[Rfam]
Nucleotides: 143
Stems, first nucleotide, its partner, number of pairs: 001143005
Number, partner (000 for none) and nucleotide at each position: 001143g002142u003141g004140g005139c006000a007000a008000u009000g010000a011000u012000g013000a014000u015000u016000g017000g018000c019000g020000c021000a022000g023000g024000g025000g026000u027000a028000c029000g030000g031000a032000c033000c034000u035000c036000a037000g038000c039000u040000a041000g042000a043000u044000c045000a046000u047000g048000g049000g050000a051000g052000c053000u054000g055000a056000a057000u058000g059000c060000a061000a062000g063000c064000u065000g066000u067000u068000g069000u070000a071000u072000u073000u074000c075000a076000g077000u078000g079000c080000a081000g082000c083000u084000g085000g086000c087000a088000u089000g090000u091000g092000g093000c094000c095000g096000g097000c098000u099000c100000a101000c102000u103000g104000g105000a106000a107000g108000c109000a110000g111000g112000u113000u114000u115000g116000c117000a118000u119000g120000a121000g122000a123000c124000u125000u126000u127000g128000c129000c130000a131000a132000a133000a134000a135000c136000u137000g138000a139005g140004c141003c142002a143001c
This 143-nucleotide sequence from Halcyon senegalensis belongs to the Rfam family "Small nucleolar RNA SNORD94". It scores 124 bits against the family's covariance model. Gene Ontology terms of the family: RNA processing and nucleolus. The family's RNA type in Rfam is C/D-box small nucleolar RNA.